Shown here is a 115-nucleotide RNA sequence from Helicobacter sp. MIT 99-5507, a member of the family "Bacterial antisense RNA HPnc0260".
The match comes from Rfam's covariance-model search (65 bits).
On this family, see Sharma et al., Nature 2010: "The primary transcriptome of the major human pathogen Helicobacter pylori".
[Rfam]
RNA sequence: UAAAUCAAAGAUUUCAUUAUCUUUUUUUAAACCAAUUAAUUCCAAAUUUUUAUUAUGCCUUAUUUAUAUGAUUUUAUGGUGGCCACGACUGGACUUGAACCAGCGACCACUACCA
Numbered sequence: 001u002a003a004a005u006c007a008a009a010g011a012u013u014u015c016a017u018u019a020u021c022u023u024u025u026u027u028u029a030a031a032c033c034a035a036u037u038a039a040u041u042c043c044a045a046a047u048u049u050u051u052a053u054u055a056u057g058c059c060u061u062a063u064u065u066a067u068a069u070g071a072u073u074u075u076a077u078g079g080u081g082g083c084c085a086c087g088a089c090u091g092g093a094c095u096u097g098a099a100c101c102a103g104c105g106a107c108c109a110c111u112a113c114c115a
Stems, first nucleotide, its partner, number of pairs: 002014004077112006086105002089103004
NCBI's taxonomy places the organism under Bacteria, Pseudomonadati, Campylobacterota, Campylobacterales, Helicobacter.